[Rfam]
RNA sequence: UCGGCCCUCCAAGAUGGUCGCCGGCGUACGUGGGCCGCUCACGCGGUGGACGUGCGUCGGAGGAAAGUCCGGACAUCGCAGGGCUGGGUGGUCGGUAACGCCGACCGGGGGUAACCCUAGGGCCAGUGCAACAGAAAACAGACCGCCGGGCGAGCCUUCGGGCCUGCCCGGUAAGGGUGAAAAGGUGAGGUAAGAGCUCACCGGGGCGGUGGUGACAUCGCCUGUCUUUGCAAACCCCACCCGAUGCAAGGCGAACGGGAGUCGAGGGUCUUCGGACCCUCCAGGGCGGCCCGCCCUGCCGACUCCAGGUAGCCGCUCGAGCUGCAGAGCAAUCUGUGGCCUAGAUGAAUGACCAUCGCCGCUUCUGGGCGCAAGCCCGGAGGAGGGGACAAAAUCCGGCUUACUAGGAGGACCGAGCGU
Numbered sequence: 001u002c003g004g005c006c007c008u009c010c011a012a013g014a015u016g017g018u019c020g021c022c023g024g025c026g027u028a029c030g031u032g033g034g035c036c037g038c039u040c041a042c043g044c045g046g047u048g049g050a051c052g053u054g055c056g057u058c059g060g061a062g063g064a065a066a067g068u069c070c071g072g073a074c075a076u077c078g079c080a081g082g083g084c085u086g087g088g089u090g091g092u093c094g095g096u097a098a099c100g101c102c103g104a105c106c107g108g109g110g111g112u113a114a115c116c117c118u119a120g121g122g123c124c125a126g127u128g129c130a131a132c133a134g135a136a137a138a139c140a141g142a143c144c145g146c147c148g149g150g151c152g153a154g155c156c157u158u159c160g161g162g163c164c165u166g167c168c169c170g171g172u173a174a175g176g177g178u179g180a181a182a183a184g185g186u187g188a189g190g191u192a193a194g195a196g197c198u199c200a201c202c203g204g205g206g207c208g209g210u211g212g213u214g215a216c217a218u219c220g221c222c223u224g225u226c227u228u229u230g231c232a233a234a235c236c237c238c239a240c241c242c243g244a245u246g247c248a249a250g251g252c253g254a255a256c257g258g259g260a261g262u263c264g265a266g267g268g269u270c271u272u273c274g275g276a277c278c279c280u281c282c283a284g285g286g287c288g289g290c291c292c293g294c295c296c297u298g299c300c301g302a303c304u305c306c307a308g309g310u311a312g313c314c315g316c317u318c319g320a321g322c323u324g325c326a327g328a329g330c331a332a333u334c335u336g337u338g339g340c341c342u343a344g345a346u347g348a349a350u351g352a353c354c355a356u357c358g359c360c361g362c363u364u365c366u367g368g369g370c371g372c373a374a375g376c377c378c379g380g381a382g383g384a385g386g387g388g389a390c391a392a393a394a395u396c397c398g399g400c401u402u403a404c405u406a407g408g409a410g411g412a413c414c415g416a417g418c419g420u
Base pairs, nucleotide, nucleotide: 001416002415003414004413006411007410008409009408010407011405013357014356015355016354017353018352019351021060022059023058024057025056026055027054028053029052030051031050065402066401067400069399070398071397072396073395074246075245076244077243081292082291083290084289086242087241088240089239090238091105092104093103094102095101106120107118108117109116110115121237122236126235127234128231129230130229143176144175145172146171147170148169149168150167151166152165184202185201186200187199188198189197203226204223205222206221207220208219209218210217211216250314251313252312258306259305260304261303262302263301283297284296285295286294287293321340322339323338324337325336326335327334328333
RNA: Bacterial RNase P class A
Organism: Persicimonas caeni